[Rfam]
Shown here is an 89-nucleotide sequence from Ruminococcaceae bacterium BL-4, a member of the family "c-di-GMP-I riboswitch aptamer".

RNA sequence: UAUCAGAAAAGGCAAACUGACCGAAAGGCAGGGGCAUAAAGCCAAGAGUCUAAGGUAAAUAAGCGUACUAUGAUAGUCUGGUUGCAAAA
Number, nucleotide and partner (000 for none) at each position: 001u000002a000003u000004c000005a000006g000007a000008a000009a000010a000011g000012g037013c000014a000015a000016a000017c032018u031019g000020a000021c028022c027023g000024a000025a000026a000027g022028g021029c000030a000031g018032g017033g000034g000035c000036a000037u012038a000039a000040a083041g082042c081043c080044a000045a079046g078047a077048g074049u073050c072051u000052a000053a000054g000055g068056u067057a066058a000059a000060u000061a000062a000063g000064c000065g000066u057067a056068c055069u000070a000071u000072g050073a049074u048075a000076g000077u047078c046079u045080g043081g042082u041083u040084g000085c000086a000087a000088a000089a000
Pairs were carried over by alignment from the consensus structure, which is taken from published work.